[Rfam]
Background:
A member of the RNA family "Eukaryotic large subunit ribosomal RNA" from Colletotrichum abscissum, 414 nucleotides of a longer RNA.

RNA sequence: UAACCUCGGAUCAAAUAAGAAUACCCGCUAAACUUAAGCAUAUCAAUAAACAGAGGAAAAGAAACCAACAGGGAUUACCCCAGUAACAGCGAGUAAAGCAGCAACAGCUCAAAUUUAAAAUCUAGCCCCAGGCCCGAGUUAUAAUUUACAGAGGAUACUUUUAGCACGGUACCUUCCGAGUUCCCUAAAACGGGACGCCAUAGAGGGUAAGAGCCCCGUACGGUUAGACACCAAGCUUUUAUAAAGCUCCUUCAACAAGUCAAGUAGUUUAGGAAUACUACUCUAAAUAGGAAGUACAUUUCUUCUAAAACUAAAUAUUAGCUAAAGACCGAUAGCGCACAAGUAGAGUAAUCGAAAAAUAAAAAGCACUUUAAAAAGAGGGUUAAAUAGUACGUAAAAUUAUUAAAAAAGAAG
Numbered sequence: 001u002a003a004c005c006u007c008g009g010a011u012c013a014a015a016u017a018a019g020a021a022u023a024c025c026c027g028c029u030a031a032a033c034u035u036a037a038g039c040a041u042a043u044c045a046a047u048a049a050a051c052a053g054a055g056g057a058a059a060a061g062a063a064a065c066c067a068a069c070a071g072g073g074a075u076u077a078c079c080c081c082a083g084u085a086a087c088a089g090c091g092a093g094u095a096a097a098g099c100a101g102c103a104a105c106a107g108c109u110c111a112a113a114u115u116u117a118a119a120a121u122c123u124a125g126c127c128c129c130a131g132g133c134c135c136g137a138g139u140u141a142u143a144a145u146u147u148a149c150a151g152a153g154g155a156u157a158c159u160u161u162u163a164g165c166a167c168g169g170u171a172c173c174u175u176c177c178g179a180g181u182u183c184c185c186u187a188a189a190a191c192g193g194g195a196c197g198c199c200a201u202a203g204a205g206g207g208u209a210a211g212a213g214c215c216c217c218g219u220a221c222g223g224u225u226a227g228a229c230a231c232c233a234a235g236c237u238u239u240u241a242u243a244a245a246g247c248u249c250c251u252u253c254a255a256c257a258a259g260u261c262a263a264g265u266a267g268u269u270u271a272g273g274a275a276u277a278c279u280a281c282u283c284u285a286a287a288u289a290g291g292a293a294g295u296a297c298a299u300u301u302c303u304u305c306u307a308a309a310a311c312u313a314a315a316u317a318u319u320a321g322c323u324a325a326a327g328a329c330c331g332a333u334a335g336c337g338c339a340c341a342a343g344u345a346g347a348g349u350a351a352u353c354g355a356a357a358a359a360u361a362a363a364a365a366g367c368a369c370u371u372u373a374a375a376a377a378g379a380g381g382g383u384u385a386a387a388u389a390g391u392a393c394g395u396a397a398a399a400u401u402a403u404u405a406a407a408a409a410a411g412a413a414g
Base pairs, nucleotide, nucleotide: 024055025053027051029049035042036041065072066071076103078101086094087093106312107311109309112146113145114144115143118140119139121137122136125133126132127131151253152252153250154249155248158246159245160244161243163237164236165235168232169231172227176223177222180196182195183194184193185192199203206216207215263282264281265280266279267278268277289306290305291304292303346353347352369380370379371378372377
The family's consensus secondary structure is taken from published work. A search with the family's covariance model found it, with a score of 2258 bits.